The record is a 128-nucleotide RNA sequence from Lederbergia galactosidilytica, which matches "pan motif" in Rfam. Taxonomically the source falls in Lederbergia (Bacteria, Bacillota, Bacilli, Bacillaceae).
RNA sequence: UGGGCAGUAUCCUAAACGAACUGCACCCUAUAUAUCAUGAGCGUAAGCAUAGAUAGCGCUUGUACCACAUUCCUGGUACUUGUGCUGUUCUAAUCUGCCUUGAUCCAUUUUGUGACUGGGACAGAGGA
Numbered sequence: 001u002g003g004g005c006a007g008u009a010u011c012c013u014a015a016a017c018g019a020a021c022u023g024c025a026c027c028c029u030a031u032a033u034a035u036c037a038u039g040a041g042c043g044u045a046a047g048c049a050u051a052g053a054u055a056g057c058g059c060u061u062g063u064a065c066c067a068c069a070u071u072c073c074u075g076g077u078a079c080u081u082g083u084g085c086u087g088u089u090c091u092a093a094u095c096u097g098c099c100u101u102g103a104u105c106c107a108u109u110u111u112g113u114g115a116c117u118g119g120g121a122c123a124g125a126g127g128a
Base pairs, nucleotide, nucleotide: 002027003026004024005023006022007021008020010019011018095124096123097122098120099119100118102116104115105114